Notes:
Shown here is an 87-nucleotide sequence, a member of the family "GA-cis RNA".
RNA sequence: GAGAGGAGGGCGCAUAUGUGCGAAGCAUAUAUUUAGGAUGCGCCCGACGAUAUACCACAGAGCGAAAGCGAUGUGGUGACACCCGAG
Numbered sequence: 001g002a003g004a005g006g007a008g009g010g011c012g013c014a015u016a017u018g019u020g021c022g023a024a025g026c027a028u029a030u031a032u033u034u035a036g037g038a039u040g041c042g043c044c045c046g047a048c049g050a051u052a053u054a055c056c057a058c059a060g061a062g063c064g065a066a067a068g069c070g071a072u073g074u075g076g077u078g079a080c081a082c083c084c085g086a087g
Stems, first nucleotide, its partner, number of pairs: 008045006015031006054077003058073002062069002
Annotation: Rfam's curators put it in the seed alignment. It is annotated as a small RNA.